[Rfam]
RNA: Small nucleolar RNA SNORD24
Organism: Chara braunii
RNA sequence: GGCCAAUGAUGUAAGAAACAUAUUUGCUACUCUUGACAGUGGCUGCGUACAUGGGACGUGGCUGUGGAUGACGUUAACUCUAUCCACCAAGAUGUCUGAGGCC
Dot-bracket structure: ((((...............................................................................................))))